Caenorhabditis snoRNA ceN51: a 149-nucleotide sequence from Caenorhabditis brenneri.
A reference for the family is Jia et al. (2007), "Systematic identification of non-coding RNA 2,2,7-trimethylguanosine cap structures in Caenorhabditis elegans", BMC Mol Biol.
It is annotated as an H/ACA-box small nucleolar RNA.
The family's consensus secondary structure was predicted with RNAalifold.
Lineage of the source: Eukaryota > Eumetazoa > Protostomia > Rhabditoidea > Caenorhabditis.
It scores 131 bits against the family's covariance model.
[Rfam]
Nucleotides: 149
Base pairs, nucleotide, nucleotide: 005065006064007063008062009061011060012059013053014052016051017050018049019048020047022045023044024043026042027041079142080141081140082139083138084137085136086135090132091131093130094129095128097126098125099124100123104122105121106120
Number, partner (000 for none) and nucleotide at each position: 001000u002000u003000c004000c005065g006064c007063g008062u009061g010000a011060g012059u013053a014052c015000u016051g017050g018049c019048u020047g021000u022045u023044u024043g025000u026042g027041u028000c029000u030000c031000a032000u033000u034000a035000u036000c037000c038000a039000u040000u041027g042026c043024c044023a045022a046000a047020u048019a049018g050017c051016u052014g053013u054000c055000a056000u057000u058000a059012a060011c061009c062008a063007c064006g065005c066000c067000a068000g069000a070000g071000u072000g073000u074000a075000g076000u077000u078000u079142g080141g081140a082139g083138u084137g085136c086135u087000a088000a089000a090132u091131u092000a093130c094129c095128g096000u097126g098125u099124g100123a101000a102000u103000a104122c105121c106120a107000u108000u109000u110000g111000a112000a113000a114000a115000a116000g117000g118000a119000u120106u121105g122104g123100u124099c125098a126097c127000u128095c129094g130093g131091a132090g133000g134000a135086g136085g137084c138083a139082c140081u141080u142079c143000c144000a145000c146000a147000g148000u149000u